[Rfam]
The record is a 108-nucleotide sequence from Stackebrandtia albiflava, which matches "SAM riboswitch aptamer (S box leader)" in Rfam.
A search with the family's covariance model found it, with a score of 91 bits.
RNA sequence: ACUUCAUCCAGAGAAGCCGAGGGAACGGCCCUGUGACGCUUCGGCAACCACCGCGUUCUGCGCGGAAGGUGCCAAAUCCGGCCGGUGGUGACACCGGAGAGAUGAGGA
Numbered sequence: 001a002c003u004u005c006a007u008c009c010a011g012a013g014a015a016g017c018c019g020a021g022g023g024a025a026c027g028g029c030c031c032u033g034u035g036a037c038g039c040u041u042c043g044g045c046a047a048c049c050a051c052c053g054c055g056u057u058c059u060g061c062g063c064g065g066a067a068g069g070u071g072c073c074a075a076a077u078c079c080g081g082c083c084g085g086u087g088g089u090g091a092c093a094c095c096g097g098a099g100a101g102a103u104g105a106g107g108a
Base pairs, nucleotide, nucleotide: 002107003106004105005104006103007102008101013042014041015040016039017038021031022030023029026080027079028078043073044072045071046070048069049068051065052064053063054062077100082097083096084095085094086093087092